[Rfam]
Notes
The record is a 115-nucleotide sequence from Marchantia polymorpha, which matches "U5 spliceosomal RNA" in Rfam. The base pairs follow the family's consensus structure, which is taken from published work. NCBI's taxonomy places the organism under Eukaryota, Embryophyta, Marchantiopsida, Marchantiidae, Marchantia polymorpha. It scores 87 bits against the family's covariance model. Rfam classes the family as a spliceosomal small nuclear RNA.
RNA sequence: CAGCCGUGUGUUCAGCCCAGAGCGAACUAUUCUUUCGCCUUUUACUAAAGAAUACCGUGUGCGGGACACAGAAGCGGCUUAUUCAAAUCUUUGGAACGCUCCUUCACUGGAGCAC
Numbered sequence: 001c002a003g004c005c006g007u008g009u010g011u012u013c014a015g016c017c018c019a020g021a022g023c024g025a026a027c028u029a030u031u032c033u034u035u036c037g038c039c040u041u042u043u044a045c046u047a048a049a050g051a052a053u054a055c056c057g058u059g060u061g062c063g064g065g066a067c068a069c070a071g072a073a074g075c076g077g078c079u080u081a082u083u084c085a086a087a088u089c090u091u092u093g094g095a096a097c098g099c100u101c102c103u104u105c106a107c108u109g110g111a112g113c114a115c
Stems, first nucleotide, its partner, number of pairs: 003078004009068005015062002018059002028054008098113005